[Rfam]
Nucleotides: 076
Base pairs, nucleotide, nucleotide: 003074004073006071007070008069009068010067011066012065013064014063015062016061017060018059019058023052024051025050026049027048028047030045031044
Number, partner (000 for none) and nucleotide at each position: 001000g002000u003074u004073c005000u006071c007070u008069g009068u010067u011066a012065g013064u014063u015062u016061u017060g018059c019058g020000u021000a022000g023052u024051u025050g026049c027048a028047c029000u030045a031044c032000a033000a034000g035000a036000g037000a038000a039000a040000u041000u042000g043000a044031g045030u046000u047028g048027u049026g050025c051024a052023a053000a054000c055000c056000u057000a058019u059018g060017u061016a062015a063014a064013a065012c066011u067010g068009a069008u070007g071006g072000u073004g074003g075000u076000c
A member of the RNA family "mir-19 microRNA precursor family" from Conger conger, 76 nucleotides long. Clan: mir-19 clan. Pairs were carried over by alignment from the consensus structure, which was predicted with RNAalifold. A reference for the family is Lagos-Quintana et al. (2001), "Identification of novel genes coding for small expressed RNAs", Science.